RNA sequence: GAGUCUUGAUCGGGAGAGGGCAAACCAGCGUUGCCGCCGAAGGGGCACUACCCAAAAACUCUCAGGCAAAAGGACCAAUCAAGGGAC
Numbered sequence: 001g002a003g004u005c006u007u008g009a010u011c012g013g014g015a016g017a018g019g020g021c022a023a024a025c026c027a028g029c030g031u032u033g034c035c036g037c038c039g040a041a042g043g044g045g046c047a048c049u050a051c052c053c054a055a056a057a058a059c060u061c062u063c064a065g066g067c068a069a070a071a072g073g074a075c076c077a078a079u080c081a082a083g084g085g086a087c
Base pairs, nucleotide, nucleotide: 006082007081008080009079010078012076013075020034021033022032023031036067037066038065039063040062043061044060045059049054
A member of the RNA family "Glycine riboswitch aptamer" from Duganella fentianensis, 87 nucleotides long. Rfam describes the family as follows. This family represents the bacterial glycine riboswitch. The organism belongs to Duganella, within Bacteria.